[Rfam]
RNA sequence: UCCCUGGUGGUCCAGCGGUUAAGACUCCGCACUCCCAAUACGGAGGGCCCGGGUUCGACUCCUGGUCAGGGAA
Numbered sequence: 001u002c003c004c005u006g007g008u009g010g011u012c013c014a015g016c017g018g019u020u021a022a023g024a025c026u027c028c029g030c031a032c033u034c035c036c037a038a039u040a041c042g043g044a045g046g047g048c049c050c051g052g053g054u055u056c057g058a059c060u061c062c063u064g065g066u067c068a069g070g071g072a073a
Stems, first nucleotide, its partner, number of pairs: 001072007010025003027043003031039001049065005
A member of the RNA family "tRNA" from Monodon monoceros, 73 nucleotides long. Pairs were carried over by alignment from the consensus structure, which is taken from published work. From the family's description: Transfer RNA (tRNA) molecules are approximately 80 nucleotides in length. Rfam links the family to the GO term triplet codon-amino acid adaptor activity. The family's RNA type in Rfam is transfer RNA.